[Rfam]
RNA sequence: UAAACUUGACCUGUCUGGCACCCUGUCUAUAUUUUCUCAGUGACGGGUGUGCCCGAAAGUUCGAGUGAGA
Number, nucleotide and partner (000 for none) at each position: 001u000002a000003a000004a066005c065006u064007u063008g062009a061010c000011c000012u000013g000014u000015c000016u000017g053018g052019c051020a000021c000022c000023c046024u045025g044026u043027c042028u000029a000030u000031a000032u000033u000034u000035u000036c000037u000038c000039a000040g000041u000042g027043a026044c025045g024046g023047g000048u000049g000050u000051g019052c018053c017054c000055g000056a000057a000058a000059g000060u000061u009062c008063g007064a006065g005066u004067g000068a000069g000070a000

This 70-nucleotide sequence from Angomonas deanei belongs to the Rfam family "Trypanosomatid snoRNA TB11Cs4H1".
A search with the family's covariance model found it, with a score of 70 bits.
It is annotated as an H/ACA-box small nucleolar RNA.
The source organism's lineage runs through Eukaryota, Euglenozoa, Kinetoplastea, Trypanosomatida and Angomonas.